Rfam assigns this 92-nucleotide RNA from Polaromonas sp. CG9_12 to the family "Burkholderia RNA 7 (anti-hemB)". About the family: This RNA motif was identified by computational search in b-proteobacteria Burkholderia. Co-purified with Hfq, expression confirmed by Northern blot. Rfam classes the family as a small RNA.
[Rfam]
RNA sequence: UCCCGCUUUUCCUCCCUGAGCGGGGCCUUUGCGUGUGACAGCAAAAAGGCGUUUCAAUCCCGGCGGGCCAUCAGCUCGCCGGGAUUUUUUUU
Numbered sequence: 001u002c003c004c005g006c007u008u009u010u011c012c013u014c015c016c017u018g019a020g021c022g023g024g025g026c027c028u029u030u031g032c033g034u035g036u037g038a039c040a041g042c043a044a045a046a047a048g049g050c051g052u053u054u055c056a057a058u059c060c061c062g063g064c065g066g067g068c069c070a071u072c073a074g075c076u077c078g079c080c081g082g083g084a085u086u087u088u089u090u091u092u
Base pairs, nucleotide, nucleotide: 002024003023004022005021006020007019025050026049027048028047029043058084059083060082061081062080063079064078065077066076067075068074